[Rfam]
RNA sequence: UAAGCCCCACCAGGGUAAUGUCUAACCAGCAGCCCUGUAGCUAGUUCUUGGAGACAUUCAGGCAACUGAAAGUUUUAAGCGUAGGACGGCAAAAUAGCGGGCCGAAAGCAAAAGCUGAAGUGAUUGAGCCUCGAAAUAUUAGUCGAGAAUGGCCGAUGUGGUUACACACACAGAAGGCAAUAUUGUAUGGUGAGUCCCUACUGACGCUCCGGGGUCUAAGAGCU
Numbered sequence: 001u002a003a004g005c006c007c008c009a010c011c012a013g014g015g016u017a018a019u020g021u022c023u024a025a026c027c028a029g030c031a032g033c034c035c036u037g038u039a040g041c042u043a044g045u046u047c048u049u050g051g052a053g054a055c056a057u058u059c060a061g062g063c064a065a066c067u068g069a070a071a072g073u074u075u076u077a078a079g080c081g082u083a084g085g086a087c088g089g090c091a092a093a094a095u096a097g098c099g100g101g102c103c104g105a106a107a108g109c110a111a112a113a114g115c116u117g118a119a120g121u122g123a124u125u126g127a128g129c130c131u132c133g134a135a136a137u138a139u140u141a142g143u144c145g146a147g148a149a150u151g152g153c154c155g156a157u158g159u160g161g162u163u164a165c166a167c168a169c170a171c172a173g174a175a176g177g178c179a180a181u182a183u184u185g186u187a188u189g190g191u192g193a194g195u196c197c198c199u200a201c202u203g204a205c206g207c208u209c210c211g212g213g214g215u216c217u218a219a220g221a222g223c224u
Stems, first nucleotide, its partner, number of pairs: 011037005019031003025191002040090002044087002047084002049081002051076005057070005125218001126216001128215006145209003150206002152178003157172004183204003189198001
RNA: Group II catalytic intron D1-D4-6
Organism: Pelotomaculum thermopropionicum